The record is a 204-nucleotide RNA sequence from Todus mexicanus, which matches "Small nucleolar RNA SNORA74" in Rfam. The source organism's lineage runs through Eukaryota, Sauropsida, Coelurosauria, Coraciiformes and Todus. For this family Rfam cites "The family of box ACA small nucleolar RNAs is defined by an evolutionarily conserved secondary structure and ubiquitous sequence elements essential for RNA accumulation" (Ganot et al., Genes Dev, 1997). The match comes from Rfam's covariance-model search (114 bits). The family is grouped with related families in Rfam's "SNORA74 clan". The family's consensus secondary structure was predicted with PFOLD. The family has 24 seed sequences and 1,348 matches in Rfam 15.1. From the family's description: U19 belongs to the H/ACA class of snoRNAs. snoRNAs bind a number of proteins (including dyskerin, Gar1p and Nop10p in the case of the H/ACA class) to form snoRNP complexes.
[Rfam]
RNA sequence: CCCAGCAGUAGUCAGCUACUCACCGCUGCUCAGUGCCUGUGAUAGUGUUAUGCUGCUGGGAGAGAAAUGCGCUGCCCAGUCACUCCUGGCACCACCGGUGCCGUUCUGGUGCCGCGUGGUGCCAGGUUUUGGCAGCACCCUGCAUGCCUGAGAGUGGAGGAACUCCUGCUCCGUGGAGUUAAUCCUAGAUUGGAUGCAGACAAC
Numbered sequence: 001c002c003c004a005g006c007a008g009u010a011g012u013c014a015g016c017u018a019c020u021c022a023c024c025g026c027u028g029c030u031c032a033g034u035g036c037c038u039g040u041g042a043u044a045g046u047g048u049u050a051u052g053c054u055g056c057u058g059g060g061a062g063a064g065a066a067a068u069g070c071g072c073u074g075c076c077c078a079g080u081c082a083c084u085c086c087u088g089g090c091a092c093c094a095c096c097g098g099u100g101c102c103g104u105u106c107u108g109g110u111g112c113c114g115c116g117u118g119g120u121g122c123c124a125g126g127u128u129u130u131g132g133c134a135g136c137a138c139c140c141u142g143c144a145u146g147c148c149u150g151a152g153a154g155u156g157g158a159g160g161a162a163c164u165c166c167u168g169c170u171c172c173g174u175g176g177a178g179u180u181a182a183u184c185c186u187a188g189a190u191u192g193g194a195u196g197c198a199g200a201c202a203a204c
Base pairs, nucleotide, nucleotide: 001060002059003058004057005056006055007054008053009052011051012050015046016045017044018043020041021039022038025036026035069138071136072135073134074133075132076131085126086125087124088123089122090121091120092119093118094117095116096114097113098112099111100110101109102108140199141198142197143196144195145194147192156185157184158183161180162179163178164177165176166175